[Rfam]
RNA: Small nucleolar RNA R44/J54/Z268 family
Organism: Helianthus annuus
RNA sequence: AAUGCAAGUGAAGAUAAAAAGACAGGGACAUCAGAACUCUGUUUAUGGAGUAAGGAUUGAUCAAGUCUGUAAUGGGAAUCUCUCUGAUGCAUG
Numbered sequence: 001a002a003u004g005c006a007a008g009u010g011a012a013g014a015u016a017a018a019a020a021g022a023c024a025g026g027g028a029c030a031u032c033a034g035a036a037c038u039c040u041g042u043u044u045a046u047g048g049a050g051u052a053a054g055g056a057u058u059g060a061u062c063a064a065g066u067c068u069g070u071a072a073u074g075g076g077a078a079u080c081u082c083u084c085u086g087a088u089g090c091a092u093g
Stems, first nucleotide, its partner, number of pairs: 002092005